[Rfam]
RNA: Ribosomal protein L19 leader
Organism: Bacillus thuringiensis
RNA sequence: ACGAUGUUCCGCUGUAAUUUAUUUAGACUUUAUAAGAGCAUCUG
Numbered sequence: 001a002c003g004a005u006g007u008u009c010c011g012c013u014g015u016a017a018u019u020u021a022u023u024u025a026g027a028c029u030u031u032a033u034a035a036g037a038g039c040a041u042c043u044g
Base pairs, nucleotide, nucleotide: 003042004041005040006039007038008037009036013034014033015032016031017030